[Rfam]
RNA: Small nucleolar RNA SNORA14
Organism: Odontophorus gujanensis
RNA sequence: CGGCAUUCCAAACCCUCCCGGUGGCUGCCCUGCUAGCUUCCAGGAAUAAGAAGGAAUGCGAGAGCGAAACGGUGAUUCAUCCAAAACGUGGAGCUCCUGUCCCGUGGCUCUUCGUUAUUUCACGUCUUCAACAUCU
Numbered sequence: 001c002g003g004c005a006u007u008c009c010a011a012a013c014c015c016u017c018c019c020g021g022u023g024g025c026u027g028c029c030c031u032g033c034u035a036g037c038u039u040c041c042a043g044g045a046a047u048a049a050g051a052a053g054g055a056a057u058g059c060g061a062g063a064g065c066g067a068a069a070c071g072g073u074g075a076u077u078c079a080u081c082c083a084a085a086a087c088g089u090g091g092a093g094c095u096c097c098u099g100u101c102c103c104g105u106g107g108c109u110c111u112u113c114g115u116u117a118u119u120u121c122a123c124g125u126c127u128u129c130a131a132c133a134u135c136u
Stems, first nucleotide, its partner, number of pairs: 003059004007052001009050001016045003020041002023038003063136002071129002074126002085116004090111002093108002097104001